Rfam assigns this 75-nucleotide RNA from Oxynema acuminatum to the family "Glutamine riboswitch aptamer (glnA leader)". The source organism's lineage runs through Bacteria, Cyanophyceae, Oscillatoriophycideae, Oxynema and Oxynema acuminatum. Rfam links the family to the GO term glutamine binding.

[Rfam]
RNA sequence: AUCGUUCAUUUUUCCCCAGGCGAUCGCUCGAUGGGGCAAAACGGAAGUAGGUAUUUCGAGCCGAAGGAACGCAUU
Number, nucleotide and partner (000 for none) at each position: 001a000002u000003c071004g070005u069006u068007c067008a000009u041010u040011u039012u038013u000014c000015c000016c000017c000018a000019g000020g000021c000022g000023a000024u000025c000026g000027c000028u000029c000030g000031a000032u000033g000034g000035g000036g000037c000038a012039a011040a010041a009042c000043g000044g072045a000046a000047g000048u000049a000050g062051g061052u060053a000054u000055u000056u000057c000058g000059a000060g052061c051062c050063g000064a000065a000066g000067g007068a006069a005070c004071g003072c044073a000074u000075u000